RNA sequence: UUCAAAGGUAGUCCAACUAAGGACGCGACGUCCUGUCGCAACGUUGGAUACGGAACAUCCUGUUCG
Numbered sequence: 001u002u003c004a005a006a007g008g009u010a011g012u013c014c015a016a017c018u019a020a021g022g023a024c025g026c027g028a029c030g031u032c033c034u035g036u037c038g039c040a041a042c043g044u045u046g047g048a049u050a051c052g053g054a055a056c057a058u059c060c061u062g063u064u065c066g
Stems, first nucleotide, its partner, number of pairs: 011049007025039005053065004
RNA: Bacillaceae-1 RNA